[Rfam]
Nucleotides: 082
Stems, first nucleotide, its partner, number of pairs: 001082005012026004028070003031066002035064003040057005
Number, partner (000 for none) and nucleotide at each position: 001082a002081u003080c004079u005078g006000g007000a008000g009000a010000g011000a012026g013025g014024c015023g016000c017000c018000u019000u020000g021000c022000g023015c024014g025013c026012c027000c028070a029069c030068c031066g032065a033000a034000g035064g036063g037062g038000a039000a040057g041056c042055c043054g044053c045000g046000c047000u048000g049000c050000c051000g052000c053044g054043c055042g056041g057040u058000g059000a060000a061000g062037c063036u064035c065032u066031c067000a068030g069029g070028u071000a072000a073000c074000g075000g076000g077000a078005c079004a080003g081002a082001u
Glycine riboswitch aptamer: an 82-nucleotide RNA sequence from Orrella dioscoreae.
The organism belongs to Orrella, within Bacteria.
The match comes from Rfam's covariance-model search (50 bits).